[Rfam]
RNA sequence: CUCACGGGCCGUGACUGGCGCGCUGGGAUGGGACGAACCAUCGGGGAGCGGCCCGGUAGUGACCAGUGCCGUGCGCCUGGGCCGUGCCG
Numbered sequence: 001c002u003c004a005c006g007g008g009c010c011g012u013g014a015c016u017g018g019c020g021c022g023c024u025g026g027g028a029u030g031g032g033a034c035g036a037a038c039c040a041u042c043g044g045g046g047a048g049c050g051g052c053c054c055g056g057u058a059g060u061g062a063c064c065a066g067u068g069c070c071g072u073g074c075g076c077c078u079g080g081g082c083c084g085u086g087c088c089g
Stems, first nucleotide, its partner, number of pairs: 005055008015045002017077005028041004068082003
RNA: ZMP/ZTP riboswitch aptamer (pfl RNA motif)
Organism: Streptomyces adustus